[Rfam]
RNA sequence: AACUUAUCUAGAGAGACUGAGGGACAGGCCCGAAGACGUCCAGCAACCUAACGUAAUCGUUAAGGUGCUAAAGCCUGAGUGAUGAUGCAUCACGCCGAUAAGAA
Numbered sequence: 001a002a003c004u005u006a007u008c009u010a011g012a013g014a015g016a017c018u019g020a021g022g023g024a025c026a027g028g029c030c031c032g033a034a035g036a037c038g039u040c041c042a043g044c045a046a047c048c049u050a051a052c053g054u055a056a057u058c059g060u061u062a063a064g065g066u067g068c069u070a071a072a073g074c075c076u077g078a079g080u081g082a083u084g085a086u087g088c089a090u091c092a093c094g095c096c097g098a099u100a101a102g103a104a
Stems, first nucleotide, its partner, number of pairs: 003102006013041001015040003021031003025077004042069004047065002050061004073096001079093005
RNA: SAM riboswitch aptamer (S box leader)
Organism: Streptohalobacillus salinus